[Rfam]
RNA: ZMP/ZTP riboswitch aptamer (pfl RNA motif)
Organism: Asanoa hainanensis
RNA sequence: GGGGGUGAGUGCGACUGGCGGCACGGGAUGGCAGUGACCAUCGGGGAGCCCGCCGUGGGUAUCGACCGCCUGGGUGCCCACG
Numbered sequence: 001g002g003g004g005g006u007g008a009g010u011g012c013g014a015c016u017g018g019c020g021g022c023a024c025g026g027g028a029u030g031g032c033a034g035u036g037a038c039c040a041u042c043g044g045g046g047a048g049c050c051c052g053c054c055g056u057g058g059g060u061a062u063c064g065a066c067c068g069c070c071u072g073g074g075u076g077c078c079c080a081c082g
Stems, first nucleotide, its partner, number of pairs: 004054004011049002015045002017070005028041004059077005